Description
Shown here is a 382-nucleotide RNA sequence from Linderina pennispora, a member of the family "RNase MRP". Rfam classes the family as a ribozyme. Its family is annotated with rRNA processing, ribonuclease MRP complex and ribonuclease MRP activity in the Gene Ontology. It scores 98 bits against the family's covariance model.
[Rfam]
RNA sequence: UACUUUUUGGAAGAACCGCUUAUUUUUACACUUUAUCGAAGCCUCACACACAAAGUCAGCAGCGGCCUCACCGGCCGAUGUCUACUUAUCUCUUGGCUUUGGGUGAAAGUCCCCGGACCCUGGGCAGAAAGUGCCGCCUGUAAUUAGGUAAUUGACGCCCCUCCUGUUUUACUAACCGCUAUGCCUAUAGAUUCCGCGUUCAGCGCUCCUCCGGGGUUCGCUCUGGGAAGCAAAGAUGCCUUGGCGGAGCUUCAGUGGGCGCUGUUCGCACCAAUCUGGCAGAGGGUUUUUGGGAUCGGGCGUCCUGUUCGUCAUAGCACAGUUAUGCGGUUGGCUAUCCAUCUGGGUAGUUACCUCAACGGGGCUCACUUCUCCAGGUAUU
Number, nucleotide and partner (000 for none) at each position: 001u000002a382003c000004u380005u000006u378007u377008u376009g375010g374011a373012a000013g000014a332015a331016c330017c329018g328019c327020u000021u000022a000023u000024u000025u000026u000027u000028a000029c000030a000031c000032u000033u000034u000035a000036u102037c101038g100039a099040a098041g097042c096043c000044u000045c000046a000047c000048a000049c000050a000051c000052a000053a087054a086055g085056u084057c000058a000059g081060c080061a079062g000063c000064g000065g000066c000067c000068u000069c000070a000071c000072c000073g000074g000075c000076c000077g000078a000079u061080g060081u059082c000083u000084a056085c055086u054087u053088a000089u000090c000091u000092c000093u000094u000095g000096g042097c041098u040099u039100u038101g037102g036103g000104u000105g000106a000107a000108a366109g365110u000111c364112c363113c362114c361115g000116g000117a000118c000119c000120c000121u000122g000123g135124g134125c133126a132127g000128a000129a000130a000131g000132u126133g125134c124135c123136g000137c000138c000139u000140g000141u000142a000143a000144u000145u000146a000147g000148g000149u000150a000151a000152u000153u000154g000155a000156c000157g304158c000159c302160c000161c000162u000163c300164c299165u298166g297167u000168u295169u000170u000171a000172c293173u292174a291175a290176c000177c000178g000179c000180u000181a000182u000183g287184c286185c285186u284187a000188u000189a000190g000191a000192u000193u000194c000195c000196g000197c000198g000199u000200u000201c000202a000203g000204c000205g000206c000207u000208c000209c000210u000211c000212c000213g000214g000215g000216g000217u000218u000219c000220g000221c000222u000223c000224u000225g000226g000227g000228a000229a000230g000231c000232a000233a000234a000235g000236a000237u000238g000239c000240c000241u000242u000243g000244g000245c000246g000247g000248a000249g000250c000251u000252u000253c000254a000255g000256u000257g000258g000259g000260c000261g000262c000263u000264g000265u000266u000267c000268g000269c000270a000271c279272c278273a277274a000275u000276c000277u273278g272279g271280c000281a000282g000283a000284g186285g185286g184287u183288u000289u000290u175291u174292g173293g172294g000295a168296u000297c166298g165299g164300g163301c000302g159303u000304c157305c000306u000307g000308u000309u000310c000311g000312u000313c000314a000315u000316a000317g000318c000319a000320c000321a000322g000323u000324u000325a000326u000327g019328c018329g017330g016331u015332u014333g000334g351335c350336u349337a348338u347339c346340c000341a000342u000343c000344u000345g000346g339347g338348u337349a336350g335351u334352u000353a000354c000355c000356u000357c000358a000359a000360c000361g114362g113363g112364g111365c109366u108367c000368a000369c000370u000371u000372c000373u011374c010375c009376a008377g007378g006379u000380a004381u000382u002